Overview: Plastid-rps12 3UTR RNA: a 98-nucleotide RNA sequence from Olea woodiana. Rfam's curators put it in the seed alignment. The base pairs follow the family's consensus structure, which was predicted with LocARNA. NCBI's taxonomy places the organism under Eukaryota, Euphyllophyta, eudicotyledons, Pentapetalae, Olea woodiana.
RNA sequence: GGUUUCCAUUGGUGCAAAUCCAAUCACCUGAAUUUAAGAUGAGAAGGAAUUCUCCAUUGGUAGCAAAUGGUUAUCUAUUAAGCGGAGGAAAUCUUAUU
Numbered sequence: 001g002g003u004u005u006c007c008a009u010u011g012g013u014g015c016a017a018a019u020c021c022a023a024u025c026a027c028c029u030g031a032a033u034u035u036a037a038g039a040u041g042a043g044a045a046g047g048a049a050u051u052c053u054c055c056a057u058u059g060g061u062a063g064c065a066a067a068u069g070g071u072u073a074u075c076u077a078u079u080a081a082g083c084g085g086a087g088g089a090a091a092u093c094u095u096a097u098u
Base pairs, nucleotide, nucleotide: 009023010022011021012020052087053086054085055084056078057077059075060074061073062072063071064070